[Rfam]
RNA sequence: GGUGCAGGCUGGUUUGUCGCUGUUCUUGAUGUUCGCAUCAGGAAAAGAGGAAAGUCCGGGCAACAUAGAGUACCAUACUUCCUAACGGGAAGGUGUUUUGGUAGGAAUACCAAAAUAACAGACAGUGCCACAGAAAAUAAACCGCCCCUGCAGGUCUAACCAAAUGGGGUAAGGGUGAAAAGGUAGGGUAAGAGCCUACCGGGUACCGGGCGACCGGUAUUGCAGGGUAAACCUUAUGGGUUGAAAGACCAAAUAGGCUCCGGUCAUUGGGCUACUCGUCCAAAUCUUUCAAGAUAGCCGGAGUGGGUAGGUCGUUGGACCUUUUCUGUGAAGAAAAGGCUAGAUAAAUGGCAAACACUUUGUGAGAAGUUACAGAACCCGGCUUAUAAGCCUGCACUUUUU
Numbered sequence: 001g002g003u004g005c006a007g008g009c010u011g012g013u014u015u016g017u018c019g020c021u022g023u024u025c026u027u028g029a030u031g032u033u034c035g036c037a038u039c040a041g042g043a044a045a046a047g048a049g050g051a052a053a054g055u056c057c058g059g060g061c062a063a064c065a066u067a068g069a070g071u072a073c074c075a076u077a078c079u080u081c082c083u084a085a086c087g088g089g090a091a092g093g094u095g096u097u098u099u100g101g102u103a104g105g106a107a108u109a110c111c112a113a114a115a116u117a118a119c120a121g122a123c124a125g126u127g128c129c130a131c132a133g134a135a136a137a138u139a140a141a142c143c144g145c146c147c148c149u150g151c152a153g154g155u156c157u158a159a160c161c162a163a164a165u166g167g168g169g170u171a172a173g174g175g176u177g178a179a180a181a182g183g184u185a186g187g188g189u190a191a192g193a194g195c196c197u198a199c200c201g202g203g204u205a206c207c208g209g210g211c212g213a214c215c216g217g218u219a220u221u222g223c224a225g226g227g228u229a230a231a232c233c234u235u236a237u238g239g240g241u242u243g244a245a246a247g248a249c250c251a252a253a254u255a256g257g258c259u260c261c262g263g264u265c266a267u268u269g270g271g272c273u274a275c276u277c278g279u280c281c282a283a284a285u286c287u288u289u290c291a292a293g294a295u296a297g298c299c300g301g302a303g304u305g306g307g308u309a310g311g312u313c314g315u316u317g318g319a320c321c322u323u324u325u326c327u328g329u330g331a332a333g334a335a336a337a338g339g340c341u342a343g344a345u346a347a348a349u350g351g352c353a354a355a356c357a358c359u360u361u362g363u364g365a366g367a368a369g370u371u372a373c374a375g376a377a378c379c380c381g382g383c384u385u386a387u388a389a390g391c392c393u394g395c396a397c398u399u400u401u402u
Stems, first nucleotide, its partner, number of pairs: 001398010011387001012356007020047002023044008052385003056382005061243004070289001073239005078092005093119001094117010120234002125232002127228003142174002144170005182200006201223001202221008247313004257304006287293001320339008
RNA: Bacterial RNase P class A
Organism: Cyclobacterium marinum